[Rfam]
RNA: Mammalian CPEB3 ribozyme
RNA sequence: AAAGGUCACACGUUUGAGGCUGCAGCAGAAGCGCUCAUGGUGUGGCCCUGUCAGAUUCCAACAAAGCUGCGAAUUCUGCU
Numbered sequence: 001a002a003a004g005g006u007c008a009c010a011c012g013u014u015u016g017a018g019g020c021u022g023c024a025g026c027a028g029a030a031g032c033g034c035u036c037a038u039g040g041u042g043u044g045g046c047c048c049u050g051u052c053a054g055a056u057u058c059c060a061a062c063a064a065a066g067c068u069g070c071g072a073a074u075u076c077u078g079c080u
Stems, first nucleotide, its partner, number of pairs: 016048001018047004024080007031043003052069003056065002